[Rfam]
The family of this 122-nucleotide RNA from Gossypium raimondii is "MIR7502 microRNA precursor family". The base pairs follow the family's consensus structure, which was predicted with RNAalifold. It scores 74 bits against the family's covariance model.
RNA sequence: UAUUAAAAAUUUCAUCCAUGUCUACAGUUAAAAACUGACAUAACUGAAAAAAUAACCAAACAGCCUCAUGCUGACGUAAAGAGACCAGUUUUUAAGAGCAAAAAUGAAUGGAAUUUUUAACA
Numbered sequence: 001u002a003u004u005a006a007a008a009a010u011u012u013c014a015u016c017c018a019u020g021u022c023u024a025c026a027g028u029u030a031a032a033a034a035c036u037g038a039c040a041u042a043a044c045u046g047a048a049a050a051a052a053u054a055a056c057c058a059a060a061c062a063g064c065c066u067c068a069u070g071c072u073g074a075c076g077u078a079a080a081g082a083g084a085c086c087a088g089u090u091u092u093u094a095a096g097a098g099c100a101a102a103a104a105u106g107a108a109u110g111g112a113a114u115u116u117u118u119a120a121c122a
Stems, first nucleotide, its partner, number of pairs: 003120013018105002021102001023100001025098001028095006